[Rfam]
RNA: Small nucleolar RNA Z247
Organism: Aegilops tauschii
RNA sequence: CCUCUCGACGACGAUGACAUGGUCUCCUACAUCCUCGCGGGGCUUGACUACGACUACAUGUCGUUUGUCUCCUUGAUCUGUGCCAGAACCGAUCGCAUCGAGGUCAGCGAGCUCUACUCCCAGUUUAUCAGCUUCGAAA
Numbered sequence: 001c002c003u004c005u006c007g008a009c010g011a012c013g014a015u016g017a018c019a020u021g022g023u024c025u026c027c028u029a030c031a032u033c034c035u036c037g038c039g040g041g042g043c044u045u046g047a048c049u050a051c052g053a054c055u056a057c058a059u060g061u062c063g064u065u066u067g068u069c070u071c072c073u074u075g076a077u078c079u080g081u082g083c084c085a086g087a088a089c090c091g092a093u094c095g096c097a098u099c100g101a102g103g104u105c106a107g108c109g110a111g112c113u114c115u116a117c118u119c120c121c122a123g124u125u126u127a128u129c130a131g132c133u134u135c136g137a138a139a
Base pairs, nucleotide, nucleotide: 005137006136007135008134089107091105092104093103